Rfam assigns this 359-nucleotide sequence from Plesiocystis pacifica to the family "transfer-messenger RNA". Its Rfam clan is "tRNA clan". From the family's description: Bacterial tmRNA, also known as 10Sa RNA or SsrA, is named for its dual tRNA and mRNA-like properties. Its role is to liberate the mRNA from a stalled ribosome. To accomplish this part of the tmRNA is used as a reading frame that ends in a translation stop signal. The broken mRNA is replaced in the ribosome by the tmRNA and translation of the tmRNA leads to addition of a proteolysis tag to the incomplete protein enabling recognition by a protease. It scores 168 bits against the family's covariance model.
RNA sequence: GGGGGUGCACUGGCGUUCGACGUGGGUUCGGAAGGUGAAGACUGCGUGUCGCGGGCUCGACGCCGCGUCAAAAACGACGGGAAACACACAGCUGCCAACGACAGCAACUACGGCCGCAUGGCCGUUGCCGCCUAAUAAGCGACACGACGUCGCGUGAGGCGCUCUAGUAGCGCGUCGUCGUCAAUACAGGAGCUAGUCACCGUAGGGCCCCGAUGCGGUGAUGAAAAUCUAGGGGAUCGCUCCCGCGAGGGCCUGCUGAUAGGCAUGCGCGGGGGCUAAAUCCAAGUAUGUCAGCUACGCACGUAGACGUCUCAUCGGAAGGCUUGCGGACCGGGGUUCGACUCCCCGCGCCUCCACUC
Numbered sequence: 001g002g003g004g005g006u007g008c009a010c011u012g013g014c015g016u017u018c019g020a021c022g023u024g025g026g027u028u029c030g031g032a033a034g035g036u037g038a039a040g041a042c043u044g045c046g047u048g049u050c051g052c053g054g055g056c057u058c059g060a061c062g063c064c065g066c067g068u069c070a071a072a073a074a075c076g077a078c079g080g081g082a083a084a085c086a087c088a089c090a091g092c093u094g095c096c097a098a099c100g101a102c103a104g105c106a107a108c109u110a111c112g113g114c115c116g117c118a119u120g121g122c123c124g125u126u127g128c129c130g131c132c133u134a135a136u137a138a139g140c141g142a143c144a145c146g147a148c149g150u151c152g153c154g155u156g157a158g159g160c161g162c163u164c165u166a167g168u169a170g171c172g173c174g175u176c177g178u179c180g181u182c183a184a185u186a187c188a189g190g191a192g193c194u195a196g197u198c199a200c201c202g203u204a205g206g207g208c209c210c211c212g213a214u215g216c217g218g219u220g221a222u223g224a225a226a227a228u229c230u231a232g233g234g235g236a237u238c239g240c241u242c243c244c245g246c247g248a249g250g251g252c253c254u255g256c257u258g259a260u261a262g263g264c265a266u267g268c269g270c271g272g273g274g275g276c277u278a279a280a281u282c283c284a285a286g287u288a289u290g291u292c293a294g295c296u297a298c299g300c301a302c303g304u305a306g307a308c309g310u311c312u313c314a315u316c317g318g319a320a321g322g323c324u325u326g327c328g329g330a331c332c333g334g335g336g337u338u339c340g341a342c343u344c345c346c347c348g349c350g351c352c353u354c355c356a357c358u359c
Stems, first nucleotide, its partner, number of pairs: 001355007021328008034316004039312004045303005050067005056081004061076001126144002129141003145180005151174004157168001161193004165188001201218001206237001208235004239276009251264003255295004259289003332348005